The record is an 86-nucleotide sequence from Romanomermis culicivorax, which matches "Selenocysteine transfer RNA" in Rfam. A search with the family's covariance model found it, with a score of 78 bits.
RNA sequence: GCCCGAAUGAGCCUCGGUGGUCCGGGGUGCAGGCUUCAAACCUGCGGCCGGUUAGCGCUGGAGUGGUUCGAUUCCACCUUUCGGGC
Number, nucleotide and partner (000 for none) at each position: 001g086002c085003c084004c083005g082006a081007a080008u000009g078010a000011g000012c027013c026014u025015c024016g023017g022018u000019g000020g000021u000022c017023c016024g015025g014026g013027g012028u046029g045030c044031a043032g042033g041034c000035u000036u000037c000038a000039a000040a000041c033042c032043u031044g030045c029046g028047g000048c061049c060050g059051g058052u057053u000054a000055g000056c000057g052058c051059u050060g049061g048062a000063g077064u076065g075066g074067u000068u000069c000070g000071a000072u000073u000074c066075c065076a064077c063078c009079u000080u007081u006082c005083g004084g003085g002086c001